mir-92 microRNA precursor family: an 80-nucleotide RNA sequence from Neodrepanis coruscans.
A search with the family's covariance model found it, with a score of 62 bits.
Its family is annotated with RISC complex and miRNA-mediated post-transcriptional gene silencing in the Gene Ontology.
The base pairs follow the family's consensus structure, which was predicted with PFOLD.
The family has 23 seed sequences and 1,347 matches in Rfam 15.1.
On this family, see Mourelatos et al., Genes Dev 2002: "miRNPs: a novel class of ribonucleoproteins containing numerous microRNAs".
[Rfam]
RNA sequence: CUUUCUGCACAGGUUGGGAUAAGUUGCAAUACUGUCUGUGUAUCUGUGGUGUUGCAAUUAUCCUAACCUGUUGAGAUUGG
Numbered sequence: 001c002u003u004u005c006u007g008c009a010c011a012g013g014u015u016g017g018g019a020u021a022a023g024u025u026g027c028a029a030u031a032c033u034g035u036c037u038g039u040g041u042a043u044c045u046g047u048g049g050u051g052u053u054g055c056a057a058u059u060a061u062c063c064u065a066a067c068c069u070g071u072u073g074a075g076a077u078u079g080g
Stems, first nucleotide, its partner, number of pairs: 004076003009071006016064005022058001024056001026055009